[Rfam]
RNA sequence: AGGAUUGAAAGGCAAACUCUUCGAAAGAUGAGGACGCAAAGCCGCGGGCCUAACAUCUUCACGGAUUACGGCGGCCGGGUUGCCAUU
Numbered sequence: 001a002g003g004a005u006u007g008a009a010a011g012g013c014a015a016a017c018u019c020u021u022c023g024a025a026a027g028a029u030g031a032g033g034a035c036g037c038a039a040a041g042c043c044g045c046g047g048g049c050c051u052a053a054c055a056u057c058u059u060c061a062c063g064g065a066u067u068a069c070g071g072c073g074g075c076c077g078g079g080u081u082g083c084c085a086u087u
Stems, first nucleotide, its partner, number of pairs: 012037002017032003021028002040081004045077003048072003055066004
RNA: c-di-GMP-I riboswitch aptamer